[Rfam]
Source information: Shown here is a 383-nucleotide part of an RNA from Selenomonas sputigena, a member of the family "Bacterial large subunit ribosomal RNA". Taxonomically the source falls in Selenomonas sputigena (Bacteria, Bacillati, Selenomonadales, Selenomonas). Pairs were carried over by alignment from the consensus structure, which is taken from published work. It is one of the family's seed sequences.
RNA sequence: GAAAAGGCCAGCAAGAAUCUGGCCCACCGAAAGCCUGAGGUUUCCUGGGCAACGCUCGUCGUCCCAGGGUCAGUCGGGACCUAAGCCGAGGCAGCAAGCAUAGGCGAUGGACAACUGGUGAAUAUUCCAGUACCGCAGAGAGUCGUUUGAGUGAUGGAGUGACGCAGGAGGGAGCUUGGGCGCGCGAAUGGAAGAGCGCGUCGAAGCCGGUAGGCUGCAAGGGAGGCAAAUCCCCCUUGUAAAAGCCGAGACGUGACAGGGAGGCAAACCUAUGGGUGAGCCGAAGCCAAGCGGACCACACUGCCGAGAAAAGCUUCUAGCGAGACGAACUGCGCCCGUACCGAAACCGACACAGGCAGGCAGGGAGAGGAUCCUAAGGUGCG
Numbered sequence: 001g002a003a004a005a006g007g008c009c010a011g012c013a014a015g016a017a018u019c020u021g022g023c024c025c026a027c028c029g030a031a032a033g034c035c036u037g038a039g040g041u042u043u044c045c046u047g048g049g050c051a052a053c054g055c056u057c058g059u060c061g062u063c064c065c066a067g068g069g070u071c072a073g074u075c076g077g078g079a080c081c082u083a084a085g086c087c088g089a090g091g092c093a094g095c096a097a098g099c100a101u102a103g104g105c106g107a108u109g110g111a112c113a114a115c116u117g118g119u120g121a122a123u124a125u126u127c128c129a130g131u132a133c134c135g136c137a138g139a140g141a142g143u144c145g146u147u148u149g150a151g152u153g154a155u156g157g158a159g160u161g162a163c164g165c166a167g168g169a170g171g172g173a174g175c176u177u178g179g180g181c182g183c184g185c186g187a188a189u190g191g192a193a194g195a196g197c198g199c200g201u202c203g204a205a206g207c208c209g210g211u212a213g214g215c216u217g218c219a220a221g222g223g224a225g226g227c228a229a230a231u232c233c234c235c236c237u238u239g240u241a242a243a244a245g246c247c248g249a250g251a252c253g254u255g256a257c258a259g260g261g262a263g264g265c266a267a268a269c270c271u272a273u274g275g276g277u278g279a280g281c282c283g284a285a286g287c288c289a290a291g292c293g294g295a296c297c298a299c300a301c302u303g304c305c306g307a308g309a310a311a312a313g314c315u316u317c318u319a320g321c322g323a324g325a326c327g328a329a330c331u332g333c334g335c336c337c338g339u340a341c342c343g344a345a346a347c348c349g350a351c352a353c354a355g356g357c358a359g360g361c362a363g364g365g366a367g368a369g370g371a372u373c374c375u376a377a378g379g380u381g382c383g
Base pairs, nucleotide, nucleotide: 006024007023008022009021010020011019025381026380027379028378033361034360035359036358039342040341044068045067046066047065048064049063053061054060075338076337077336078335080110081109085105086104087103089101091099092098114131115130116129117128118127134334135333136332137331138330142326143325144324151321152320156317157316158315159314160313164304165303166302167301170297171296175291176290177289178288179287180201181200182199183198184197185196202259206254207253213247214246215245217240218239219238220237221236222235223234225233226232263282264281265280347356348355363375364374365373366372